Rfam assigns this 183-nucleotide RNA sequence from Reyranella soli to the family "Manganese Mn2+ riboswitch aptamer (yybP-ykoY)". Rfam describes the family as follows. This RNA was originally discovered in E. coli during a large scale screen and was named SraF. The family was later found to exist upstream of related families of protein genes in many bacteria, including the the yybP and ykoK genes in B. subtilis. The specific functions of these proteins are unknown, but this structured RNA element may be involved in their genetic regulation as a riboswitch. Gene Ontology term of the family: manganese ion binding.
RNA sequence: GACUUCGUCCUCGGGGAGUAACCGUCCGCGCGCAUAGCGGAGCUUGCGUCAACAAACUUGGCUACGGCCAUGGCGCCAGCAGCGGACCGCAAGGUCCGAAUUGGCCAGACCGACGACAUGGGAUCCCCACUUCGGGUCGAGGGGAUGUCGUGUCGUCGUGCAGCUUCGGCCCCCGGAUUCGUU
Numbered sequence: 001g002a003c004u005u006c007g008u009c010c011u012c013g014g015g016g017a018g019u020a021a022c023c024g025u026c027c028g029c030g031c032g033c034a035u036a037g038c039g040g041a042g043c044u045u046g047c048g049u050c051a052a053c054a055a056a057c058u059u060g061g062c063u064a065c066g067g068c069c070a071u072g073g074c075g076c077c078a079g080c081a082g083c084g085g086a087c088c089g090c091a092a093g094g095u096c097c098g099a100a101u102u103g104g105c106c107a108g109a110c111c112g113a114c115g116a117c118a119u120g121g122g123a124u125c126c127c128c129a130c131u132u133c134g135g136g137u138c139g140a141g142g143g144g145a146u147g148u149c150g151u152g153u154c155g156u157c158g159u160g161c162a163g164c165u166u167c168g169g170c171c172c173c174c175g176g177a178u179u180c181g182u183u
Base pairs, nucleotide, nucleotide: 026040027039028038042080043079044078046076047075048074049073050072051071059070060069061068062067081182084179085178087176088175089174

About this RNA
The match comes from Rfam's covariance-model search (48 bits).